[Rfam]
RNA sequence: CUUUCCGAGGAGCGCUGCGAGAGGACACGGUGGCCGGGCCGCCACCUCCCAGGCUCGGAGAGCCUUGUAUCCAACCGCGCUCACCCUGC
Numbered sequence: 001c002u003u004u005c006c007g008a009g010g011a012g013c014g015c016u017g018c019g020a021g022a023g024g025a026c027a028c029g030g031u032g033g034c035c036g037g038g039c040c041g042c043c044a045c046c047u048c049c050c051a052g053g054c055u056c057g058g059a060g061a062g063c064c065u066u067g068u069a070u071c072c073a074a075c076c077g078c079g080c081u082c083a084c085c086c087u088g089c
Stems, first nucleotide, its partner, number of pairs: 002061007021048004
This 89-nucleotide sequence from Vitreoscilla filiformis belongs to the Rfam family "SAH (S-adenosyl-L-homocysteine) riboswitch aptamer". Lineage of the source: Bacteria > Pseudomonadota > Neisseriales > Neisseriaceae > Vitreoscilla. The family's consensus secondary structure is taken from published work. For this family Rfam cites "Riboswitches that sense S-adenosylhomocysteine and activate genes involved in coenzyme recycling" (Wang et al., Mol Cell, 2008).